This 148-nucleotide RNA from Pseudomonas aeruginosa belongs to the Rfam family "PrrF RNA".
Gene Ontology term of the family: sRNA-mediated gene silencing.
The organism belongs to Pseudomonas aeruginosa, within Bacteria.
Rfam classes the family as a small RNA.
About the family: PrrF RNA is a small RNA involved in iron homeostasis and is found exclusively in Pseudomonas species.
[Rfam]
RNA sequence: UUGACCUGAUAAUGAGAAUAGUUAUUAUUACACCAACUGGUCGCGAGGCCAGCAGGUAAGCUGAGAGACCAAGCAGUCGGACUCUUCAGAUUAUCUCCUCAUCAGGCUAAUCACGGUUUCGACCCGGCACUUUGCCGGGUCUUUUUUU
Numbered sequence: 001u002u003g004a005c006c007u008g009a010u011a012a013u014g015a016g017a018a019u020a021g022u023u024a025u026u027a028u029u030a031c032a033c034c035a036a037c038u039g040g041u042c043g044c045g046a047g048g049c050c051a052g053c054a055g056g057u058a059a060g061c062u063g064a065g066a067g068a069c070c071a072a073g074c075a076g077u078c079g080g081a082c083u084c085u086u087c088a089g090a091u092u093a094u095c096u097c098c099u100c101a102u103c104a105g106g107c108u109a110a111u112c113a114c115g116g117u118u119u120c121g122a123c124c125c126g127g128c129a130c131u132u133u134g135c136c137g138g139g140u141c142u143u144u145u146u147u148u
Stems, first nucleotide, its partner, number of pairs: 034055001037052006061089003064085004069079001097106003121141008